[Rfam]
Rfam assigns this 101-nucleotide RNA from Jatropha curcas to the family "Small nucleolar RNA Z43".
RNA sequence: GGACAGUGACGAUUUGAUUGUAUAAGGUCUCGUUCGUCGUAAUUGGCUAUAAAAAGGCCUUGACGACCAUCCUGAUAUAUCACCACCCAUAUUCUGAGUCC
Numbered sequence: 001g002g003a004c005a006g007u008g009a010c011g012a013u014u015u016g017a018u019u020g021u022a023u024a025a026g027g028u029c030u031c032g033u034u035c036g037u038c039g040u041a042a043u044u045g046g047c048u049a050u051a052a053a054a055a056g057g058c059c060u061u062g063a064c065g066a067c068c069a070u071c072c073u074g075a076u077a078u079a080u081c082a083c084c085a086c087c088c089a090u091a092u093u094c095u096g097a098g099u100c101c
Stems, first nucleotide, its partner, number of pairs: 001101004051061002